[Rfam]
RNA sequence: UUAACUCAAAUUUGUAUGGAAUGGGAUCAUUUGCGUACGUUUCCCGCUAGGGGCGCUGUUCGAACUGCAUACAAUAUUGGGUUA
Number, nucleotide and partner (000 for none) at each position: 001u000002u000003a000004a000005c000006u000007c000008a078009a077010a000011u000012u074013u073014g072015u071016a070017u000018g068019g000020a066021a000022u064023g000024g000025g061026a060027u000028c058029a057030u000031u000032u000033g000034c052035g000036u050037a000038c000039g047040u046041u000042u000043c000044c000045c000046g040047c039048u000049a000050g036051g000052g034053g000054c000055g000056c000057u029058g028059u000060u026061c025062g000063a000064a022065c000066u020067g000068c018069a000070u016071a015072c014073a013074a012075u000076a000077u009078u008079g000080g000081g000082u000083u000084a000